[Rfam]
RNA sequence: ACGGAGGCCGCCGAAAAUCCAGAACAGAGUAGGCA
Number, nucleotide and partner (000 for none) at each position: 001a000002c000003g020004g019005a018006g000007g000008c000009c000010g034011c033012c032013g000014a000015a000016a000017a000018u005019c004020c003021a000022g000023a000024a000025c000026a000027g000028a000029g000030u000031a000032g012033g011034c010035a000
DUF805b RNA: a 35-nucleotide sequence. It is annotated as a cis-regulatory element. The family's consensus secondary structure is taken from published work. Clan: DUF805 clan.